[Rfam]
RNA sequence: AUUACCUGGGGAUCUUAUUCAAAUGCAGAUUCUGACUCAAUAAGUCUAGGAUGGGGCCUGGGAUUCUGUAUUUCUAGCAAGUUCCCAGGUAAUGCUGA
Numbered sequence: 001a002u003u004a005c006c007u008g009g010g011g012a013u014c015u016u017a018u019u020c021a022a023a024u025g026c027a028g029a030u031u032c033u034g035a036c037u038c039a040a041u042a043a044g045u046c047u048a049g050g051a052u053g054g055g056g057c058c059u060g061g062g063a064u065u066c067u068g069u070a071u072u073u074c075u076a077g078c079a080a081g082u083u084c085c086c087a088g089g090u091a092a093u094g095c096u097g098a
Stems, first nucleotide, its partner, number of pairs: 003091003009085003014081003018077002021073003025069005031063003

mir-544 microRNA precursor family: a 98-nucleotide RNA sequence from Lipotes vexillifer. Gene Ontology terms of the family: RISC complex and miRNA-mediated post-transcriptional gene silencing. Taxonomically the source falls in Lipotes (Eukaryota, Gnathostomata, Teleostomi, Lipotidae). Pairs were carried over by alignment from the consensus structure, which was predicted with RNAalifold. Rfam 15.1 lists 10,750 matches to the family in 132 species. A reference for the family is Chiang et al. (2010), "Mammalian microRNAs: experimental evaluation of novel and previously annotated genes", Genes Dev.